[Rfam]
RNA sequence: GACCGACAUCAGCGACUCGUUCUGCGACCCAUUGCCGACGGCGAGGUAGGCGUUCAUCCCCAGCUCGCGCAUCUGCUGUUCGCCGAUCACCCGGGUGAUGACGUUUUUGCUGUAGGUAUCGGCCAGCUGACGCGCCUGGGAAGCCAGAUAGGCGGCGUUACAGAUGUUCGGUGGCAUAUUGCCAAGAUCUUUCGC
Numbered sequence: 001g002a003c004c005g006a007c008a009u010c011a012g013c014g015a016c017u018c019g020u021u022c023u024g025c026g027a028c029c030c031a032u033u034g035c036c037g038a039c040g041g042c043g044a045g046g047u048a049g050g051c052g053u054u055c056a057u058c059c060c061c062a063g064c065u066c067g068c069g070c071a072u073c074u075g076c077u078g079u080u081c082g083c084c085g086a087u088c089a090c091c092c093g094g095g096u097g098a099u100g101a102c103g104u105u106u107u108u109g110c111u112g113u114a115g116g117u118a119u120c121g122g123c124c125a126g127c128u129g130a131c132g133c134g135c136c137u138g139g140g141a142a143g144c145c146a147g148a149u150a151g152g153c154g155g156c157g158u159u160a161c162a163g164a165u166g167u168u169c170g171g172u173g174g175c176a177u178a179u180u181g182c183c184a185a186g187a188u189c190u191u192u193c194g195c
Stems, first nucleotide, its partner, number of pairs: 005189002012032001014030001017027004033043003050059001062077003078135002081132002084129002087126001092122001094120004099112002102109002136163003140159002143156003167186002170183003
Yersinia sRNA 276: a 195-nucleotide RNA sequence from Klebsiella pneumoniae. The family's RNA type in Rfam is antisense RNA. A reference for the family is Nuss et al. (2015), "Transcriptomic profiling of Yersinia pseudotuberculosis reveals reprogramming of the Crp regulon by temperature and uncovers Crp as a master regulator of small RNAs", PLoS Genet.